The record is a 130-nucleotide RNA from Mola mola, which matches "Small nucleolar RNA ACA64" in Rfam. The family has 30 seed sequences and 9,537 matches in Rfam 15.1. The match comes from Rfam's covariance-model search (69 bits). For this family Rfam cites "A computational screen for mammalian pseudouridylation guide H/ACA RNAs" (Schattner et al., RNA, 2006). The family's RNA type in Rfam is H/ACA-box small nucleolar RNA.
[Rfam]
RNA sequence: UCAGACUGAAAAUGAUCUCAGGUGUGACAAUGGUCUGAGGUCAGAUAACUGAGCCUAAAGAAAAACGGUGCGUUAAGCUUAUUGCCUGCUCAGCUGUUGGCAGAGUGAUAAAACCCAUGUUCCAACAAAA
Numbered sequence: 001u002c003a004g005a006c007u008g009a010a011a012a013u014g015a016u017c018u019c020a021g022g023u024g025u026g027a028c029a030a031u032g033g034u035c036u037g038a039g040g041u042c043a044g045a046u047a048a049c050u051g052a053g054c055c056u057a058a059a060g061a062a063a064a065a066c067g068g069u070g071c072g073u074u075a076a077g078c079u080u081a082u083u084g085c086c087u088g089c090u091c092a093g094c095u096g097u098u099g100g101c102a103g104a105g106u107g108a109u110a111a112a113a114c115c116c117a118u119g120u121u122c123c124a125a126c127a128a129a130a
Stems, first nucleotide, its partner, number of pairs: 006051001008049001010046001013043004021035003067123001070120004079111005087102003